Shown here is a 199-nucleotide sequence from Massilimicrobiota sp. An134, a member of the family "T-box leader".
A search with the family's covariance model found it, with a score of 125 bits.
It is annotated as a cis-regulatory leader.

[Rfam]
RNA sequence: AAAAAGGCAAAGAACAGCAGAGAUUAAAAGGGCGUUGUAGAGAACUGAUGGUUGGUGCAAAUCAGGACAUAACUUUUAUGAAGAUGGGCUGGGAGCUGUUAUCUUGAAUAGUGAGAGAUAAACGUUAACUGCGUUAAAGUUUUGAGGGUAUAUCGACAGAUAUAAAAAAAGGUGGUACCGCGUAUAAUACGUCCUUUUA
Number, nucleotide and partner (000 for none) at each position: 001a000002a000003a000004a000005a000006g000007g096008c095009a000010a000011a000012g000013a000014a000015c091016a090017g089018c088019a000020g000021a000022g000023a079024u078025u000026a076027a075028a074029a000030g000031g000032g000033c000034g068035u067036u000037g000038u000039a000040g000041a000042g000043a000044a000045c065046u064047g063048a062049u061050g000051g000052u000053u000054g000055g000056u000057g000058c000059a000060a000061a049062u048063c047064a046065g045066g000067a035068c034069a000070u000071a000072a000073c000074u028075u027076u026077u000078a024079u023080g000081a000082a000083g000084a000085u000086g000087g000088g018089c017090u016091g015092g000093g000094a000095g008096c007097u000098g000099u121100u120101a119102u118103c117104u116105u115106g000107a000108a000109u000110a000111g000112u000113g000114a000115g105116a104117g103118a102119u101120a100121a099122a000123c133124g132125u131126u000127a000128a000129c000130u000131g125132c124133g123134u000135u000136a000137a000138a000139g000140u000141u000142u000143u000144g000145a000146g000147g000148g000149u164150a163151u162152a161153u160154c159155g000156a000157c000158a000159g154160a153161u152162a151163u150164a149165a000166a000167a000168a000169a196170a195171g194172g193173u000174g000175g000176u000177a000178c000179c000180g192181c191182g190183u189184a188185u000186a000187a000188u184189a183190c182191g181192u180193c172194c171195u170196u169197u000198u000199a000